A member of the RNA family "Small nucleolar RNA SNORD25" from Panicum miliaceum, 86 nucleotides long. The literature on the family includes a 2001 paper in Nucleic Acids Res by Qu et al., "Identification of 10 novel snoRNA gene clusters from Arabidopsis thaliana". Rfam links the family to the GO terms nucleolus and RNA processing. The match comes from Rfam's covariance-model search (91 bits). The family is grouped with related families in Rfam's "SNORD25 clan". Rfam classes the family as a C/D-box small nucleolar RNA.
RNA sequence: CAUGAUGAUGAUGAGCCCUAACAGACCUGUAAUGAUUCUUGCGGUUAUGAUCGCUUGACAAUGAACAUCUAAGGGACUGAGUCACA
Number, nucleotide and partner (000 for none) at each position: 001c000002a000003u084004g083005a082006u081007g000008a000009u000010g000011a000012u000013g000014a000015g000016c000017c000018c000019u000020a000021a000022c000023a000024g000025a000026c000027c000028u000029g000030u000031a000032a000033u000034g000035a000036u000037u000038c000039u000040u000041g000042c000043g000044g000045u000046u000047a000048u000049g000050a000051u000052c000053g000054c000055u000056u000057g000058a000059c000060a000061a000062u000063g000064a000065a000066c000067a000068u000069c000070u000071a000072a000073g000074g000075g000076a000077c000078u000079g000080a000081g006082u005083c004084a003085c000086a000